[Rfam]
RNA: Bacterial RNase P class A
RNA sequence: UGAGACCUUCCGAUGGCCGCGAUGCCAUGCCUGGUGCAUGGCGUUGAGGAACUUCCGGGCUCCGCAGAGCACGAUGGCGGAUAACGUCCGCCCAGGGCGACCUGAGAGACAGCGCAACAGAGAACAGACCGCCGGCCUGGCGCCGGUAAGGGUGAAACGGCGGUGCAAGAGACCACCGGGCCCCUGGUAACAGGUGGCCGCAUGGCAAGCCUCAUCGGGAGCAAGGCCAAGCAGUGGACGCUUGAGGGCUGCUCGUCCGAAGUCCACGGGUAGGCCGCUAGAGCCCAGCGGCAACGUUGGGUCGAGAUGGAUGGCCAUCCGCAUUCCCUUGUGGAAUGUGACAGAACCCGGGGUAUGGAAGGUCUCACUUC
Numbered sequence: 001u002g003a004g005a006c007c008u009u010c011c012g013a014u015g016g017c018c019g020c021g022a023u024g025c026c027a028u029g030c031c032u033g034g035u036g037c038a039u040g041g042c043g044u045u046g047a048g049g050a051a052c053u054u055c056c057g058g059g060c061u062c063c064g065c066a067g068a069g070c071a072c073g074a075u076g077g078c079g080g081a082u083a084a085c086g087u088c089c090g091c092c093c094a095g096g097g098c099g100a101c102c103u104g105a106g107a108g109a110c111a112g113c114g115c116a117a118c119a120g121a122g123a124a125c126a127g128a129c130c131g132c133c134g135g136c137c138u139g140g141c142g143c144c145g146g147u148a149a150g151g152g153u154g155a156a157a158c159g160g161c162g163g164u165g166c167a168a169g170a171g172a173c174c175a176c177c178g179g180g181c182c183c184c185u186g187g188u189a190a191c192a193g194g195u196g197g198c199c200g201c202a203u204g205g206c207a208a209g210c211c212u213c214a215u216c217g218g219g220a221g222c223a224a225g226g227c228c229a230a231g232c233a234g235u236g237g238a239c240g241c242u243u244g245a246g247g248g249c250u251g252c253u254c255g256u257c258c259g260a261a262g263u264c265c266a267c268g269g270g271u272a273g274g275c276c277g278c279u280a281g282a283g284c285c286c287a288g289c290g291g292c293a294a295c296g297u298u299g300g301g302u303c304g305a306g307a308u309g310g311a312u313g314g315c316c317a318u319c320c321g322c323a324u325u326c327c328c329u330u331g332u333g334g335a336a337u338g339u340g341a342c343a344g345a346a347c348c349c350g351g352g353g354u355a356u357g358g359a360a361g362g363u364c365u366c367a368c369u370u371c
Stems, first nucleotide, its partner, number of pairs: 001367010012319007020046009051354003055351005060221004067254004072217005077091005092106001093104004107212002112210002114206002129151002131147006159177002162174003178201001179199004184193003225276004234267006246258004283302008